[Rfam]
RNA sequence: UUGGGUAAAAUUAAUGUAGGACCUAUAUUUUGGAAAUGGAACCCACAUAAAGUGGUGGAACAUAUAUUGAUUUUAUCCAA
Numbered sequence: 001u002u003g004g005g006u007a008a009a010a011u012u013a014a015u016g017u018a019g020g021a022c023c024u025a026u027a028u029u030u031u032g033g034a035a036a037u038g039g040a041a042c043c044c045a046c047a048u049a050a051a052g053u054g055g056u057g058g059a060a061c062a063u064a065u066a067u068u069g070a071u072u073u074u075a076u077c078c079a080a
Stems, first nucleotide, its partner, number of pairs: 001080018023058003026054007

Record summary: MIR5269 microRNA precursor family: an 80-nucleotide RNA from Medicago truncatula. It scores 80 bits against the family's covariance model.